[Rfam]
Overview
Rfam assigns this 89-nucleotide sequence from Prosthecochloris sp. CIB 2401 to the family "SAM-Chlorobi RNA". The base pairs follow the family's consensus structure, which is taken from published work. A search with the family's covariance model found it, with a score of 69 bits.
RNA sequence: AGGCAUCCCCAUUACCUAUGGACACGGUGCCGCAGACCCCCGGGGUUGUUCUGCCCUUGAACGGUCUGUAACGGGUUUUCCGUGUCCAG
Number, nucleotide and partner (000 for none) at each position: 001a000002g031003g030004c029005a028006u027007c026008c000009c021010c020011a019012u018013u000014a000015c000016c000017u000018a012019u011020g010021g009022a000023c000024a000025c000026g007027g006028u005029g004030c003031c002032g000033c068034a067035g066036a065037c064038c063039c059040c000041c000042g057043g056044g055045g054046u000047u000048g000049u000050u000051c000052u000053g000054c045055c044056c043057u042058u000059g039060a000061a000062c000063g038064g037065u036066c035067u034068g033069u000070a000071a000072c000073g000074g000075g000076u000077u000078u000079u000080c000081c000082g000083u000084g000085u000086c000087c000088a000089g000